[Rfam]
RNA sequence: UGCCUCGUUCUUCAGCAGAUAGACACAACAUGCUGUGUGUCUGAAUUGGAAAACGUGGCUAGAGGAGUAACAGGUUCUGCUUUCCUCGCUGUAAAGUUAAUUGCAGUGGUGACAAUGAGACCUGUAACAAGU
Number, nucleotide and partner (000 for none) at each position: 001u000002g059003c058004c057005u000006c055007g054008u053009u000010c000011u000012u000013c000014a000015g000016c000017a000018g000019a000020u000021a042022g041023a040024c039025a038026c037027a036028a000029c000030a000031u000032g000033c000034u000035g000036u027037g026038u025039g024040u023041c022042u021043g000044a000045a000046u000047u000048g000049g000050a000051a000052a000053a008054c007055g006056u000057g004058g003059c002060u000061a000062g000063a000064g000065g000066a000067g000068u000069a000070a125071c124072a123073g122074g121075u000076u000077c000078u000079g000080c000081u000082u000083u000084c111085c000086u109087c108088g107089c106090u000091g000092u000093a000094a000095a000096g000097u000098u000099a000100a000101u000102u000103g000104c000105a000106g089107u088108g087109g086110u000111g084112a000113c000114a000115a000116u000117g000118a000119g000120a000121c074122c073123u072124g071125u070126a000127a000128c000129a000130a000131g000132u000
Small nucleolar RNA SNORA1: a 132-nucleotide RNA sequence from Lanius ludovicianus. Rfam 15.1 lists 1,282 matches to the family in 515 species. Pairs were carried over by alignment from the consensus structure, which was predicted with PFOLD. ACA1 is a member of the H/ACA class of snoRNA that guide the sites of modification of uridines to pseudouridines. NCBI's taxonomy places the organism under Eukaryota, Sauria, Aves, Laniidae, Lanius. Gene Ontology terms of the family: RNA processing and nucleolus.